[Rfam]
RNA sequence: UGGAAGGAUAGGUUGACGAACCGAAAAACCGGGGACCCUGCCCGGUUUUCCUUCCAAUAAAAACCAGGG
Numbered sequence: 001u002g003g004a005a006g007g008a009u010a011g012g013u014u015g016a017c018g019a020a021c022c023g024a025a026a027a028a029c030c031g032g033g034g035a036c037c038c039u040g041c042c043c044g045g046u047u048u049u050c051c052u053u054c055c056a057a058u059a060a061a062a063a064c065c066a067g068g069g
Stems, first nucleotide, its partner, number of pairs: 001056008011022004028046005036069005
Dot-bracket structure: ((((((((..((((....)))).....(((((...[[[[[.)))))..))))))))........]]]]]
A member of the RNA family "int-alpA RNA" from delta proteobacterium NaphS2, 69 nucleotides long. The family has 167 seed sequences and 577 matches in Rfam 15.1. The base pairs follow the family's consensus structure, which is taken from published work. The organism belongs to Deltaproteobacteria, within Bacteria. From the family's description: Acidobacteria (1 example), Planctomycetes (1 example), Proteobacteria. The match comes from Rfam's covariance-model search (49 bits).